[Rfam]
RNA sequence: AUGACGUGUGCGGGAGAGCUCCGGGCCCAGGGCCCGGGCACCGAAGGAGCAAGCCUCCCCGCCAAUCUCUCAGGUCCGCGUACCGCUCGCGUCCG
Numbered sequence: 001a002u003g004a005c006g007u008g009u010g011c012g013g014g015a016g017a018g019c020u021c022c023g024g025g026c027c028c029a030g031g032g033c034c035c036g037g038g039c040a041c042c043g044a045a046g047g048a049g050c051a052a053g054c055c056u057c058c059c060c061g062c063c064a065a066u067c068u069c070u071c072a073g074g075u076c077c078g079c080g081u082a083c084c085g086c087u088c089g090c091g092u093c094c095g
Stems, first nucleotide, its partner, number of pairs: 006090003010086004020038006040075003043071002047069003053062002

This 95-nucleotide RNA from Microbacterium sp. TNHR37B belongs to the Rfam family "Glycine riboswitch aptamer". NCBI's taxonomy places the organism under Bacteria, Bacillati, Actinomycetota, Microbacteriaceae, Microbacterium.